Overview:
Rfam assigns this 142-nucleotide RNA sequence from Jaculus jaculus to the family "Small nucleolar RNA SNORA67". Gene Ontology terms of the family: nucleolus and RNA processing. Rfam's curators write: U67 belongs to the H/ACA class of snoRNAs which are thought to guide the sites of modification of uridines to pseudouridines. Lineage of the source: Eukaryota > Vertebrata > Dipnotetrapodomorpha > Dipodoidea > Jaculus.
Nucleotides: 142
Stems, first nucleotide, its partner, number of pairs: 002064006009057002019049003022043007075132001078130001084124002092115001094113002
Number, partner (000 for none) and nucleotide at each position: 001000c002064u003063c004062c005061a006060a007059g008000g009057u010056g011000a012000u013000u014000c015000c016000c017000u018000c019049u020048c021047c022043a023042a024041g025040g026039g027038g028037c029000c030000a031000a032000c033000u034000a035000a036000u037028g038027c039026c040025c041024c042023u043022u044000u045000c046000c047021g048020g049019a050000a051000c052000g053000u054000a055000g056010c057009a058000a059007c060006u061005u062004g063003g064002a065000a066000g067000a068000a069000a070000a071000c072000c073000u074000g075132g076000c077000a078130u079000g080000c081000c082000u083000a084124g085123g086000g087000u088000c089000c090000u091000u092115g093000g094113a095112g096000c097000g098000c099000a100000u101000g102000g103000g104000a105000u106000g107000u108000g109000u110000a111000u112095u113094u114000c115092c116000u117000u118000u119000g120000c121000c122000u123085u124084c125000c126000u127000u128000u129000g130078g131000c132075u133000g134000c135000c136000u137000a138000c139000a140000u141000c142000a